[Rfam]
RNA sequence: UAGCAGGUUAAGUUACAGAGCAGCUGUUCGGUGCUGCGCUGUCGUUCCCCCUGCAAAUAUAAAACUGUUUCCUACUAUCCCUGUCUGUCCGCACCCCACGACUGGCAGGGACGCUUGGUCUCAGACAU
Numbered sequence: 001u002a003g004c005a006g007g008u009u010a011a012g013u014u015a016c017a018g019a020g021c022a023g024c025u026g027u028u029c030g031g032u033g034c035u036g037c038g039c040u041g042u043c044g045u046u047c048c049c050c051c052u053g054c055a056a057a058u059a060u061a062a063a064a065c066u067g068u069u070u071c072c073u074a075c076u077a078u079c080c081c082u083g084u085c086u087g088u089c090c091g092c093a094c095c096c097c098a099c100g101a102c103u104g105g106c107a108g109g110g111a112c113g114c115u116u117g118g119u120c121u122c123a124g125a126c127a128u
Base pairs, nucleotide, nucleotide: 003054004053005052006051007050015042016041017040018039020037021036022035023034024033080109081108082107083106085104087102088101
Dot-bracket structure: ..(((((.......((((.(((((........))))).)))).......))))).........................((((.(.((............)).).))))...................